[Rfam]
RNA sequence: CAACUUCGGGGCAGCGCACUCCUCCUCCCAGCGCGCCUCGAUGGGAUUGGCAACACUCCUCCUCCCAGUUGCCAAUCAGAACAAGCAACGCCCGUCGGACCUCCUCCCCUGACGGGCGUUGUUU
Numbered sequence: 001c002a003a004c005u006u007c008g009g010g011g012c013a014g015c016g017c018a019c020u021c022c023u024c025c026u027c028c029c030a031g032c033g034c035g036c037c038u039c040g041a042u043g044g045g046a047u048u049g050g051c052a053a054c055a056c057u058c059c060u061c062c063u064c065c066c067a068g069u070u071g072c073c074a075a076u077c078a079g080a081a082c083a084a085g086c087a088a089c090g091c092c093c094g095u096c097g098g099a100c101c102u103c104c105u106c107c108c109c110u111g112a113c114g115g116g117c118g119u120u121g122u123u124u
Base pairs, nucleotide, nucleotide: 007040008039009038011036012035014034015033016032017031045077046076047075048074049073050072051071052070053069054068088119089118090117091116092115093114094113095112096111097110098109
Rfam assigns this 124-nucleotide RNA from Pararhizobium polonicum to the family "Alphaproteobacterial ar14". For this family Rfam cites "A conserved alpha-proteobacterial small RNA contributes to osmoadaptation and symbiotic efficiency of rhizobia on legume roots" (Robledo et al., Environ Microbiol, 2017). Rfam 15.1 lists 784 matches to the family in 332 species. It scores 111 bits against the family's covariance model. The base pairs follow the family's consensus structure. Rfam describes the family as follows. Smr14C2 was renamed NfeR1 (Nodule Formation Efficiency RNA) highly expressed in salt stress and during the symbiotic interaction on legume roots.